[Rfam]
The family of this 92-nucleotide sequence from Alkalibacillus haloalkaliphilus is "Glycine riboswitch aptamer". Pairs were carried over by alignment from the consensus structure. Lineage of the source: Bacteria > Bacilli > Caryophanales > Bacillaceae > Alkalibacillus. It scores 67 bits against the family's covariance model.
RNA sequence: AUGAUUACAAGGGGAGAGUUCACAGCUUGUGACGCCGACGGAGCAAAUACAUAACGUAUGAAUCUCUCAGGCACAAAGACUCUUGUAUGACG
Numbered sequence: 001a002u003g004a005u006u007a008c009a010a011g012g013g014g015a016g017a018g019u020u021c022a023c024a025g026c027u028u029g030u031g032a033c034g035c036c037g038a039c040g041g042a043g044c045a046a047a048u049a050c051a052u053a054a055c056g057u058a059u060g061a062a063u064c065u066c067u068c069a070g071g072c073a074c075a076a077a078g079a080c081u082c083u084u085g086u087a088u089g090a091c092g
Stems, first nucleotide, its partner, number of pairs: 006087008020032004034072003037068002041066003047059002